[Rfam]
This 344-nucleotide sequence from Desulfoscipio gibsoniae belongs to the Rfam family "Bacterial RNase P class B".
Rfam links the family to the GO terms tRNA processing, ribonuclease P activity and dimeric ribonuclease P complex.
From the family's description: Ribonuclease P (RNase P) is a ubiquitous endoribonuclease, found in archaea, bacteria and eukarya as well as chloroplasts and mitochondria. Its best characterised activity is the generation of mature 5'-ends of tRNAs by cleaving the 5'-leader elements of precursor-tRNAs. Cellular RNase Ps are ribonucleoproteins. RNA from bacterial RNase Ps retains its catalytic activity in the absence of the protein subunit, i.e. it is a ribozyme.
A search with the family's covariance model found it, with a score of 133 bits.

RNA sequence: UAUGACGAGCAGUCGCUGCUGUUCGGUUUAACCGGAUGGUAGAGGAAAGUCGAGACACGCACACCGGGUGUCCAUAAAGGCAUUUGGUGUAGAAUGGUGCCCGGCGCAAGCCGGGGCAGGGCGACCUGACGACGGUCAAAGAAACCCAAUGGGUUUUCAGUAGCUGUAAAGUGCCACAGAAACUAAGUCAUCGGGUAACCGGUGAGUGCAAGGGUAAACUCCGCCAGCGUGCAACCCAAAUAGGCAGCCUUUGAGCUGCGGGUAGGGGCACCCCCGGGAGGGGGAGGUGAACCGCAAGGUUUGCCUAGAUAGAUGACUGCUGAAACAGAAUCUCGCUUACGGUC
Dot-bracket structure: ...(((((((((((.(((((((((.........)))))))))....[[[.[[[[[(((((((((((((((((......))))))))))))....(((((((((((....))))))(((((....)))).)((.(((.....((((.(....)))))......))).....(((((............(((((((....))))))).......)))..))))))))))))))...(((...........................)))...(((((....)))))(((((((((....)))))))))........))))))).........]]]]]]]].).)))